The family of this 73-nucleotide RNA from Gossypium raimondii is "Small nucleolar RNA snoR60". The family is grouped with related families in Rfam's "SNORD101 clan". By type it is a C/D-box small nucleolar RNA. Rfam 15.1 lists 1,133 matches to the family in 227 species. Pairs were carried over by alignment from the consensus structure, which was predicted with PFOLD.

RNA sequence: AUGCAAAUGAUGAACUCUACUCGGAUUCCCCUUCAGGACUUCAUGGAUGAUGCAAACUCGAGUAUCUGAUGCA
Numbered sequence: 001a002u003g004c005a006a007a008u009g010a011u012g013a014a015c016u017c018u019a020c021u022c023g024g025a026u027u028c029c030c031c032u033u034c035a036g037g038a039c040u041u042c043a044u045g046g047a048u049g050a051u052g053c054a055a056a057c058u059c060g061a062g063u064a065u066c067u068g069a070u071g072c073a
Base pairs, nucleotide, nucleotide: 002073003072004071005070